[Rfam]
RNA: Small nucleolar RNA U2-30
Organism: Suricata suricatta
RNA sequence: GAGCAAUGAUGAAGAGGUUUUCAUACUGACUUUUACAACUAUGAAAGUUUCUACACUUGAUCUGAGCUCA
Dot-bracket structure: ((((........(((((((........)))))))...............................)))).